RNA sequence: AGCUGAUGCAUACGGCGACGGCUUUUUGAGUCUCGCUGCAGCAGCUGUUCCCCUCUGGAGGUUUUACCUUCACACCUAACAAGGGCCCCGUUUGGAGGCCCUUUUUU
Numbered sequence: 001a002g003c004u005g006a007u008g009c010a011u012a013c014g015g016c017g018a019c020g021g022c023u024u025u026u027u028g029a030g031u032c033u034c035g036c037u038g039c040a041g042c043a044g045c046u047g048u049u050c051c052c053c054u055c056u057g058g059a060g061g062u063u064u065u066a067c068c069u070u071c072a073c074a075c076c077u078a079a080c081a082a083g084g085g086c087c088c089c090g091u092u093u094g095g096a097g098g099c100c101c102u103u104u105u106u107u
Stems, first nucleotide, its partner, number of pairs: 001046005007040003015036004056072007082102006088095002
The family of this 107-nucleotide sequence from Martelella sp. AD-3 is "Alphaproteobacterial ar15". It scores 86 bits against the family's covariance model. On this family, see del Val et al., Mol Microbiol 2007: "Identification of differentially expressed small non-coding RNAs in the legume endosymbiont Sinorhizobium meliloti by comparative genomics". The pairing is the family consensus, mapped onto this sequence. Rfam 15.1 lists 316 matches to the family in 177 species. Clan: suhB sRNA clan.